[Rfam]
RNA sequence: AGUUAACGAAGAGGUGCAUGUCUCAUCAGUAAUCAUUGUUAGGCUGGCAAAAGCUGGAGCAUUGAUGAAAGGGUGCCGUGCCGAAACAAAACUGGUUUGCCCCAGUGGCGUUGGGGGAUCGUUGAAGAAGCGAUUCACUGUCGUGGAAACACGGAGCGCUUCUAGAUAA
Numbered sequence: 001a002g003u004u005a006a007c008g009a010a011g012a013g014g015u016g017c018a019u020g021u022c023u024c025a026u027c028a029g030u031a032a033u034c035a036u037u038g039u040u041a042g043g044c045u046g047g048c049a050a051a052a053g054c055u056g057g058a059g060c061a062u063u064g065a066u067g068a069a070a071g072g073g074u075g076c077c078g079u080g081c082c083g084a085a086a087c088a089a090a091a092c093u094g095g096u097u098u099g100c101c102c103c104a105g106u107g108g109c110g111u112u113g114g115g116g117g118a119u120c121g122u123u124g125a126a127g128a129a130g131c132g133a134u135u136c137a138c139u140g141u142c143g144u145g146g147a148a149a150c151a152c153g154g155a156g157c158g159c160u161u162c163u164a165g166a167u168a169a
Base pairs, nucleotide, nucleotide: 008162009161010160011159016081017080018079019078020077022075024073032066033065034064035063037061038060039059085112086111087110091106092105093104094103095102113139114138116136117135118134119133120132121131122130123129141154142153143152144151145150
Overview:
Rfam assigns this 169-nucleotide RNA from Limosilactobacillus gastricus to the family "Lysine riboswitch aptamer". A search with the family's covariance model found it, with a score of 94 bits.